[Rfam]
RNA sequence: UUUAGGACCCGUCCCCUACUCCAUUUCCAUAGGGGCCGGGAUCGAACAGAAGGAGGAAGCAGGCCGCCGGCCGGCGGUGCGGCAGUGUGGAGACCUGCCGUAAUUUCUCAGGGGACGCCCCCCUGUUGGAGAGGCUUUCGUGCGGAGGCGCGGAGGCCACGGUCAAGAGUAUGUCA
Numbered sequence: 001u002u003u004a005g006g007a008c009c010c011g012u013c014c015c016c017u018a019c020u021c022c023a024u025u026u027c028c029a030u031a032g033g034g035g036c037c038g039g040g041a042u043c044g045a046a047c048a049g050a051a052g053g054a055g056g057a058a059g060c061a062g063g064c065c066g067c068c069g070g071c072c073g074g075c076g077g078u079g080c081g082g083c084a085g086u087g088u089g090g091a092g093a094c095c096u097g098c099c100g101u102a103a104u105u106u107c108u109c110a111g112g113g114g115a116c117g118c119c120c121c122c123c124u125g126u127u128g129g130a131g132a133g134g135c136u137u138u139c140g141u142g143c144g145g146a147g148g149c150g151c152g153g154a155g156g157c158c159a160c161g162g163u164c165a166a167g168a169g170u171a172u173g174u175c176a
Base pairs, nucleotide, nucleotide: 006042008040009039010038011037013035014034015033016032017031018030064077065076066075067074069164070163071162072161073160078102079101080100081099082098083097084096085095087094088093105130106129107128111124112123113122133158134157135156136155137154138153139152140151141150142149143148
RNA: malK-I RNA